[Rfam]
A member of the RNA family "MIR821 microRNA precursor family" from Oryza meridionalis, 275 nucleotides long. The organism belongs to Oryza, within Eukaryota.
RNA sequence: GAUUUCAACUGAAAAAUUCAUCAACAAUAAAGUUGUAUAACUCAUCAAGAUCUAUAACUUUUAUUUUGGUCAUUUCUUUAUCCGACAAAAUGAUAGUAACAUUGUUCAUAAAAUUCACAUAUCUCUCAUCUGGUUCUAUAAACUAUAACAGAGAUAUGCAAAUUUUAUGAACAAUGUUACUAACACUUUGUCGGAUGAAGAAAUCACAAACAUAAAAGUUAUAGAUCUUGGUGAGUUAUACAACUAUAUUGUUGAUGACUUUUUUAGCUGAAAUC
Numbered sequence: 001g002a003u004u005u006c007a008a009c010u011g012a013a014a015a016a017u018u019c020a021u022c023a024a025c026a027a028u029a030a031a032g033u034u035g036u037a038u039a040a041c042u043c044a045u046c047a048a049g050a051u052c053u054a055u056a057a058c059u060u061u062u063a064u065u066u067u068g069g070u071c072a073u074u075u076c077u078u079u080a081u082c083c084g085a086c087a088a089a090a091u092g093a094u095a096g097u098a099a100c101a102u103u104g105u106u107c108a109u110a111a112a113a114u115u116c117a118c119a120u121a122u123c124u125c126u127c128a129u130c131u132g133g134u135u136c137u138a139u140a141a142a143c144u145a146u147a148a149c150a151g152a153g154a155u156a157u158g159c160a161a162a163u164u165u166u167a168u169g170a171a172c173a174a175u176g177u178u179a180c181u182a183a184c185a186c187u188u189u190g191u192c193g194g195a196u197g198a199a200g201a202a203a204u205c206a207c208a209a210a211c212a213u214a215a216a217a218g219u220u221a222u223a224g225a226u227c228u229u230g231g232u233g234a235g236u237u238a239u240a241c242a243a244c245u246a247u248a249u250u251g252u253u254g255a256u257g258a259c260u261u262u263u264u265u266a267g268c269u270g271a272a273a274u275c
Stems, first nucleotide, its partner, number of pairs: 014262003018258004023253002026250002031245012044232010055221010066210002069207002072204004077199005083193007091185002094182006101175012114162002118158005131145005
Dot-bracket structure: .............(((.((((.((.((...((((((((((((.((((((((((.((((((((((.((.((.((((.(((((.(((((((.((.((((((.((((((((((((.((..(((((........(((((.....)))))........)))))..)).)))))))))))).)))))).)).))))))).))))).)))).)).)).)))))))))).)))))))))).))))))))))))...)).)).)))).))).............